[Rfam]
RNA sequence: CUUUUUCCGUCAUGUUGAGGAGUUAAUUUGCGUGUUUUUAUAUUUGAUUAAACACGUCCAUUAACUCUGGUACAUGAUGGUAAAAGC
Numbered sequence: 001c002u003u004u005u006u007c008c009g010u011c012a013u014g015u016u017g018a019g020g021a022g023u024u025a026a027u028u029u030g031c032g033u034g035u036u037u038u039u040a041u042a043u044u045u046g047a048u049u050a051a052a053c054a055c056g057u058c059c060a061u062u063a064a065c066u067c068u069g070g071u072a073c074a075u076g077a078u079g080g081u082a083a084a085a086g087c
Base pairs, nucleotide, nucleotide: 001086002085003084004083005082008079009078010077011076012075013074014073015072019068020067021066022065023064024063025062026061027060030057031056032055033054034053035052036051037050
Dot-bracket structure: (((((..((((((((...(((((((((..((((((((............))))))))..)))))))))...))))))))..))))).

This 87-nucleotide RNA sequence from Anopheles gambiae belongs to the Rfam family "mir-1891 microRNA precursor family". The sequence is in the family's curated seed alignment. NCBI's taxonomy places the organism under Eukaryota, Protostomia, Ecdysozoa, Anophelinae, gambiae species complex.